[Rfam]
RNA sequence: GUGGGAGCAGCAAGAGAACCGUUACCAUUACUAAACUCAGUAAUGGUAACGGUUUCCUCGCCAUUCCCAAG
Numbered sequence: 001g002u003g004g005g006a007g008c009a010g011c012a013a014g015a016g017a018a019c020c021g022u023u024a025c026c027a028u029u030a031c032u033a034a035a036c037u038c039a040g041u042a043a044u045g046g047u048a049a050c051g052g053u054u055u056c057c058u059c060g061c062c063a064u065u066c067c068c069a070a071g
Stems, first nucleotide, its partner, number of pairs: 007064001011060001013058001017054004022049011
Shown here is a 71-nucleotide RNA sequence from Mus musculus, a member of the family "mir-451 microRNA precursor family". The sequence is in the family's curated seed alignment.